[Rfam]
RNA: c-di-GMP-I riboswitch aptamer
Organism: Orenia metallireducens
RNA sequence: UUUUGAAAAAGGCACACUUAUCGAAAGGUAGGGUCGCAAAACUGAGGGUCUAAGGUAUAAUCUUAUACUAUGAUUGCCAGAUUACCAAA
Dot-bracket structure: ...........((...((((((....))))))...))..((.(..(((((....((((......))))...)))..)).).))......